The family of this 114-nucleotide sequence from Planomonospora parontospora is "c-di-GMP-II-GAG riboswitch aptamer". For this family Rfam cites "Bioinformatic analysis of riboswitch structures uncovers variant classes with altered ligand specificity" (Weinberg et al., Proc Natl Acad Sci U S A, 2017). Taxonomically the source falls in Planomonospora parontospora (Bacteria, Actinomycetes, Streptosporangiaceae, Planomonospora). Clan: c-di-GMP_II riboswitch clan. Pairs were carried over by alignment from the consensus structure, which is taken from published work.
[Rfam]
Nucleotides: 114
Stems, first nucleotide, its partner, number of pairs: 003112001008107004014088002022083008065101002068096004
Number, partner (000 for none) and nucleotide at each position: 001000a002000u003112c004000c005000a006000g007000c008107g009106g010105g011104u012000a013000c014088g015087c016000g017000a018000u019000g020000a021000u022083c023082c024081g025080g026079g027078a028077c029076g030000g031000c032000c033000u034000c035000a036000a037000c038000g039000g040000c041000g042000c043000u044000u045000g046000a047000c048000g049000g050000c051000g052000c053000a054000c055000g056000u057000a058000g059000g060000a061000a062000u063000u064000c065101g066100g067000c068096c069095g070094c071093c072000u073000a074000g075000c076029c077028g078027u079026u080025c081024c082023g083022g084000g085000g086000a087015g088014c089000c090000a091000a092000u093071g094070g095069c096068g097000a098000g099000a100066c101065c102000g103000a104011a105010c106009c107008c108000a109000g110000c111000c112003g113000u114000c